[Rfam]
RNA sequence: CUGCAUGAUGGAACUUCACCAUUCUUCUGUUUCUCCAGGAGAAUGAAUAUUCCUUCAGUGCUAUAAAAUGAGGAGUUUUCAGGGCCACCAGCCUUCAAGUAGAGUCUGAGUGGUAGUAUAUUUCUUCUACAAAA
Numbered sequence: 001c002u003g004c005a006u007g008a009u010g011g012a013a014c015u016u017c018a019c020c021a022u023u024c025u026u027c028u029g030u031u032u033c034u035c036c037a038g039g040a041g042a043a044u045g046a047a048u049a050u051u052c053c054u055u056c057a058g059u060g061c062u063a064u065a066a067a068a069u070g071a072g073g074a075g076u077u078u079u080c081a082g083g084g085c086c087a088c089c090a091g092c093c094u095u096c097a098a099g100u101a102g103a104g105u106c107u108g109a110g111u112g113g114u115a116g117u118a119u120a121u122u123u124c125u126u127c128u129a130c131a132a133a134a
Base pairs, nucleotide, nucleotide: 003061004060005059006058020045021044022043023042024041025040026039027038072127073126074125075124084114085113088110089108090107091106093104094103095102
RNA: Small nucleolar RNA U109
Organism: Varanus komodoensis